[Rfam]
RNA sequence: GCGGUACCGGUUCACAUCCCCGGAUCCCCCGGGUGAUGACCCGGCGACC
Numbered sequence: 001g002c003g004g005u006a007c008c009g010g011u012u013c014a015c016a017u018c019c020c021c022g023g024a025u026c027c028c029c030c031g032g033g034u035g036a037u038g039a040c041c042c043g044g045c046g047a048c049c
Stems, first nucleotide, its partner, number of pairs: 003049003007044004015038004019033004
This 49-nucleotide sequence from Actinoallomurus iriomotensis belongs to the Rfam family "L31-Actinobacteria ribosomal protein leader". It is annotated as a cis-regulatory leader. On this family, see Eckert and Weinberg, BMC Microbiol 2020: "Discovery of 20 novel ribosomal leader candidates in bacteria and archaea". The family is grouped with related families in Rfam's "Ribosomal Protein L31 Leader clan".